[Rfam]
Nucleotides: 078
Base pairs, nucleotide, nucleotide: 013045015044016043017042021078022077023076024075025074026073027072028040029039030038049067050066051065053063054062055061
Number, partner (000 for none) and nucleotide at each position: 001000g002000g003000u004000u005000g006000c007000a008000a009000g010000u011000u012000u013045g014000a015044g016043g017042u018000c019000a020000u021078a022077g023076c024075a025074g026073a027072a028040g029039u030038g031000c032000u033000c034000a035000c036000a037000g038030u039029g040028c041000a042017a043016c044015c045013c046000u047000g048000u049067c050066a051065g052000a053063u054062u055061c056000c057000a058000a059000a060000u061055g062054a063053a064000g065051c066050u067049g068000u069000g070000u071000a072027u073026u074025c075024u076023g077022c078021u